[Rfam]
RNA sequence: UCUGUGGUGACGCGGAAUCUGAAGGAAGCGAGCGGCAAACUUCCGGUCUGAGGAACACGAACUUCAUACAAGGCUAGGUAUCAUUGGAUGAGUUUGCUCAACAAAACAAAGUCCUUUCUGCCGAAGGUGAUACAGAGUAAAUGAAGCAGAUAGAUGGAAGGAAAGAUUACAUC
Numbered sequence: 001u002c003u004g005u006g007g008u009g010a011c012g013c014g015g016a017a018u019c020u021g022a023a024g025g026a027a028g029c030g031a032g033c034g035g036c037a038a039a040c041u042u043c044c045g046g047u048c049u050g051a052g053g054a055a056c057a058c059g060a061a062c063u064u065c066a067u068a069c070a071a072g073g074c075u076a077g078g079u080a081u082c083a084u085u086g087g088a089u090g091a092g093u094u095u096g097c098u099c100a101a102c103a104a105a106a107c108a109a110a111g112u113c114c115u116u117u118c119u120g121c122c123g124a125a126g127g128u129g130a131u132a133c134a135g136a137g138u139a140a141a142u143g144a145a146g147c148a149g150a151u152a153g154a155u156g157g158a159a160g161g162a163a164a165g166a167u168u169a170c171a172u173c
Base pairs, nucleotide, nucleotide: 001016002015003014004013005012006011028173036165040160041159042158043157044156045155046151047150048149049148050147062146063145064144065143066142067141073138074137075136078133079132080131081130082129083128086114087113088112089111092107093106094105095104